[Rfam]
RNA sequence: GCCCCGAAUGCUGUGUGGAAGACUAGUGAUUUUGUUGUGACAUUGAGCAAAGAAACCAACAACAAAACCCAGUCUGCCUCUCAGCGUCGGGUA
Dot-bracket structure: ..((((.((.(((.(.((.(((((.(.(.(((.(((((....................)))))))).).)))))).)).).))).))))))..
This 93-nucleotide RNA sequence from Denticeps clupeoides belongs to the Rfam family "mir-7 microRNA precursor family". Rfam 15.1 lists 2,589 matches to the family in 797 species. For this family Rfam cites "Identification of novel genes coding for small expressed RNAs" (Lagos-Quintana et al., Science, 2001). This family represents the microRNA (miRNA) precursor mir-7. Pairs were carried over by alignment from the consensus structure, which was predicted with PFOLD. The source organism's lineage runs through Eukaryota, Chordata, Clupeocephala, Otomorpha and Denticeps. A search with the family's covariance model found it, with a score of 69 bits.